[Rfam]
Nucleotides: 334
Base pairs, nucleotide, nucleotide: 002334003333004332005331006330008327009326010325011324014266015265016264017263018262019261022081023080024079025078026077027076028075048063049062050061051060052059085319086318089316090315091314092313173232174231175230179228180227181226182225183224184223191212192211193210200206201205267303268302269301270300271299272298
Number, partner (000 for none) and nucleotide at each position: 001000a002334g003333c004332a005331a006330c007000a008327g009326a010325g011324a012000a013000g014266a015265u016264c017263u018262g019261c020000a021000c022081u023080u024079g025078a026077c027076g028075u029000c030000a031000a032000u033000u034000a035000a036000u037000u038000a039000u040000a041000c042000a043000u044000a045000c046000u047000g048063g049062a050061a051060u052059g053000u054000u055000u056000u057000a058000u059052c060051a061050u062049u063048c064000g065000a066000u067000a068000c069000a070000a071000u072000u073000u074000u075028a076027c077026g078025u079024u080023a081022g082000g083000g084000a085319a086318g087000g088000u089316c090315u091314c092313c093000a094000g095000a096000c097000u098000a099000u100000a101000g102000u103000g104000g105000c106000u107000c108000u109000u110000u111000u112000u113000u114000a115000u116000u117000u118000a119000u120000a121000a122000a123000g124000a125000a126000g127000g128000g129000c130000u131000a132000u133000g134000c135000c136000u137000g138000u139000a140000a141000u142000g143000g144000g145000u146000a147000u148000a149000a150000a151000a152000u153000a154000u155000g156000c157000g158000u159000u160000g161000c162000c163000u164000u165000u166000g167000g168000u169000u170000a171000a172000c173232g174231c175230g176000c177000u178000u179228u180227c181226u182225c183224u184223a185000u186000c187000u188000u189000u190000u191212g192211g193210c194000a195000a196000a197000a198000a199000c200206a201205a202000a203000g204000u205201u206200u207000u208000g209000a210193g211192u212191u213000u214000c215000g216000a217000g218000a219000g220000c221000u222000c223184u224183a225182g226181a227180g228179a229000u230175u231174g232173c233000u234000a235000u236000u237000u238000u239000a240000c241000u242000g243000g244000u245000c246000a247000u248000a249000g250000u251000u252000a253000u254000a255000g256000u257000u258000a259000u260000u261019g262018c263017g264016g265015a266014u267303a268302c269301u270300a271299u272298u273000u274000c275000u276000u277000u278000u279000a280000u281000c282000u283000c284000u285000u286000a287000u288000u289000u290000g291000a292000u293000g294000g295000a296000a297000g298272a299271a300270u301269a302268g303267u304000u305000a306000a307000c308000a309000g310000a311000a312000u313092g314091g315090a316089g317000a318086c319085u320000a321000c322000u323000c324011u325010c326009u327008c328000a329000a330006g331005u332004u333003g334002c